[Rfam]
The family of this 117-nucleotide RNA sequence from Peribacillus saganii is "epsC RNA".
The family's RNA type in Rfam is cis-regulatory element.

RNA sequence: UGGAAAUGUCUCCUGUCCGUUAUCAGUGGAGGCACUCGGUCAUGCUGUGGGUAAUAAGUUCUAUUGCCUUAGACGCAAGUCGUCAAAAGUAUGGUGUGAGGGCGGGUUGAAUGCCCA
Numbered sequence: 001u002g003g004a005a006a007u008g009u010c011u012c013c014u015g016u017c018c019g020u021u022a023u024c025a026g027u028g029g030a031g032g033c034a035c036u037c038g039g040u041c042a043u044g045c046u047g048u049g050g051g052u053a054a055u056a057a058g059u060u061c062u063a064u065u066g067c068c069u070u071a072g073a074c075g076c077a078a079g080u081c082g083u084c085a086a087a088a089g090u091a092u093g094g095u096g097u098g099a100g101g102g103c104g105g106g107u108u109g110a111a112u113g114c115c116c117a
Base pairs, nucleotide, nucleotide: 001019002018003017004016007034008033009032010031011030012029013028035100036099037098038097039095040094041093042092043091044090045089046088049069050068051067052066053065054064055063056062072084073083074082075081104116105115106114107113
The match comes from Rfam's covariance-model search (112 bits). The base pairs follow the family's consensus structure, which is taken from published work.